[Rfam]
t44 RNA: an 87-nucleotide sequence from Legionella quinlivanii.
The source organism's lineage runs through Bacteria, Pseudomonadota, Gammaproteobacteria, Legionellaceae and Legionella.
The family's RNA type in Rfam is small RNA.
The family's consensus secondary structure was predicted with LocARNA.
RNA sequence: CUAGCGCGCUUUUAACGACACACACGUUUCGUCACAUAAAGCGGGGUCCCCAUGUGGGGUGCUUUAUGGGAAGCGUGGAGGCAUAAC
Numbered sequence: 001c002u003a004g005c006g007c008g009c010u011u012u013u014a015a016c017g018a019c020a021c022a023c024a025c026g027u028u029u030c031g032u033c034a035c036a037u038a039a040a041g042c043g044g045g046g047u048c049c050c051c052a053u054g055u056g057g058g059g060u061g062c063u064u065u066a067u068g069g070g071a072a073g074c075g076u077g078g079a080g081g082c083a084u085a086a087c
Base pairs, nucleotide, nucleotide: 023077024076025075026074027073028072029071030070035068036067037066038065039064040063041062042061043060048059049058050057051056